[Rfam]
RNA sequence: AAGAACUAUAUAAUUGAUGUCUCAAAUGAAGGAGUAACGCCCGGAAGGGGACACGCUAAUACUUCGGAUAGCGCCGGACAAUACAGAAUGUCCGGGGUUAUAAGCCCGGGGAAGACGUGCGAAGUACACCCUAACACGGAAAGGUGAGGAAAGGUCGGCAGUGAUGCAGGCUGUGUAUGACAGUGCGGGCGGGGUUAUC
Number, nucleotide and partner (000 for none) at each position: 001a000002a000003g000004a000005a000006c000007u000008a000009u000010a000011u000012a000013a000014u000015u000016g000017a000018u053019g052020u051021c050022u049023c048024a000025a000026a000027u000028g000029a000030a000031g000032g042033a000034g040035u000036a000037a000038c000039g000040c034041c000042c032043g000044g000045a000046a000047g000048g023049g022050g021051a020052c019053a018054c191055g190056c189057u188058a000059a000060u000061a000062c000063u000064u109065c108066g107067g106068a101069u100070a099071g098072c097073g000074c095075c094076g093077g092078a091079c090080a089081a000082u000083a000084c000085a000086g000087a000088a000089u080090g079091u078092c077093c076094g075095g074096g000097g072098u071099u070100a069101u068102a000103a000104g000105c000106c067107c066108g065109g064110g000111g000112a000113a000114g000115a000116c187117g186118u185119g184120c183121g000122a000123a000124g178125u177126a176127c175128a174129c173130c149131c148132u147133a000134a000135c000136a145137c144138g000139g000140a000141a000142a000143g000144g137145u136146g000147a132148g131149g130150a000151a000152a000153g172154g171155u170156c169157g000158g167159c166160a165161g000162u000163g000164a000165u160166g159167c158168a000169g156170g155171c154172u153173g129174u128175g127176u126177a125178u124179g000180a000181c000182a000183g120184u119185g118186c117187g116188g057189g056190c055191g054192g000193g000194g000195u000196u000197a000198u000199c000
The record is a 199-nucleotide RNA from Clostridium sp. C105KSO13, which matches "Group II catalytic intron D1-D4-5" in Rfam. NCBI's taxonomy places the organism under Bacteria, Bacillati, Bacillota, Clostridiaceae, Clostridium. About the family: Group II introns are found in rRNA, tRNA and mRNA of organelles in fungi, plants and protists, and also in mRNA in bacteria.